[Rfam]
Nucleotides: 099
Base pairs, nucleotide, nucleotide: 020083021082022081023080024079025078029047030046031045032044033043034042035041056075057074058073059072060071061070
Number, partner (000 for none) and nucleotide at each position: 001000c002000a003000u004000g005000c006000c007000g008000c009000c010000c011000a012000u013000u014000c015000g016000u017000a018000u019000u020083c021082u022081c023080g024079u025078a026000u027000a028000u029047a030046u031045u032044c033043g034042g035041g036000g037000c038000a039000g040000g041035c042034c043033c044032g045031a046030a047029u048000g049000u050000c051000u052000c053000u054000a055000c056075c057074c058073g059072g060071a061070a062000c063000c064000a065000g066000u067000u068000a069000u070061u071060u072059c073058u074057g075056g076000a077000c078025u079024a080023c081022g082021a083020g084000u085000u086000u087000g088000a089000a090000u091000a092000a093000u094000c095000u096000a097000c098000a099000u
Annotation: The family of this 99-nucleotide sequence from Paenibacillus paeoniae is "Purine riboswitch aptamer". Pairs were carried over by alignment from the consensus structure, which is taken from published work. The organism belongs to Paenibacillus, within Bacteria.